Rfam assigns this 61-nucleotide RNA sequence from Pristionchus pacificus to the family "mir-8364 microRNA precursor family". Pairs were carried over by alignment from the consensus structure, which was predicted with RNAalifold. Rfam 15.1 lists 3,320 matches to the family in 2 species. Gene Ontology terms of the family: RISC complex and miRNA-mediated post-transcriptional gene silencing. Taxonomically the source falls in Pristionchus (Eukaryota, Rhabditida, Rhabditina, Neodiplogasteridae).
[Rfam]
RNA sequence: UCUUAAUUUCUCAUACUCUCCCACCGGACAGAAUGGCGAGAGAGUGUGUGAAAUGAAGAGA
Numbered sequence: 001u002c003u004u005a006a007u008u009u010c011u012c013a014u015a016c017u018c019u020c021c022c023a024c025c026g027g028a029c030a031g032a033a034u035g036g037c038g039a040g041a042g043a044g045u046g047u048g049u050g051a052a053a054u055g056a057a058g059a060g061a
Stems, first nucleotide, its partner, number of pairs: 001059004006054002010050001012048006019041002022038001